[Rfam]
RNA sequence: GUGUCAUAAUGAUAGCUUGCCUGGAAACUCCAGCAGGAGAAGGCAGGUUUGAGAACCGACAC
Numbered sequence: 001g002u003g004u005c006a007u008a009a010u011g012a013u014a015g016c017u018u019g020c021c022u023g024g025a026a027a028c029u030c031c032a033g034c035a036g037g038a039g040a041a042g043g044c045a046g047g048u049u050u051g052a053g054a055a056c057c058g059a060c061a062c
Base pairs, nucleotide, nucleotide: 001062002061003060004059005058014049015048016047017046018045019044020043021042022041028039029038030037
Notes: A member of the RNA family "Selenocysteine insertion sequence 1" from Clupea harengus, 62 nucleotides long. Taxonomically the source falls in Clupea (Eukaryota, Neopterygii, Clupeidae, Clupeinae). It scores 40 bits against the family's covariance model. The family has 61 seed sequences and 3,793 matches in Rfam 15.1.